[Rfam]
A member of the RNA family "MIR2619 microRNA precursor family" from Medicago truncatula, 174 nucleotides long. Pairs were carried over by alignment from the consensus structure, which was predicted with RNAalifold. The source organism's lineage runs through Eukaryota, Streptophyta, Euphyllophyta, Gunneridae and Medicago.
RNA sequence: AAACAGCCCCCUAUGUUUUGAUUCUUUGGCAUUUUUGGACCCCAAGACAAAAAUAAAAUAAAAAAAUUGACACGUGGCAUUUCACUUAGGGUGCCACCCACGUCAGCGUUGACCGGGUCAACAAUGGACUAGGGGUCCAAAACUGCCAAAGAAUCAAAACAUCGGGGGCUGUUU
Numbered sequence: 001a002a003a004c005a006g007c008c009c010c011c012u013a014u015g016u017u018u019u020g021a022u023u024c025u026u027u028g029g030c031a032u033u034u035u036u037g038g039a040c041c042c043c044a045a046g047a048c049a050a051a052a053a054u055a056a057a058a059u060a061a062a063a064a065a066a067u068u069g070a071c072a073c074g075u076g077g078c079a080u081u082u083c084a085c086u087u088a089g090g091g092u093g094c095c096a097c098c099c100a101c102g103u104c105a106g107c108g109u110u111g112a113c114c115g116g117g118u119c120a121a122c123a124a125u126g127g128a129c130u131a132g133g134g135g136u137c138c139a140a141a142a143c144u145g146c147c148a149a150a151g152a153a154u155c156a157a158a159a160c161a162u163c164g165g166g167g168g169c170u171g172u173u174u
Stems, first nucleotide, its partner, number of pairs: 001174002004171005013162019033142011045130001072103002075096007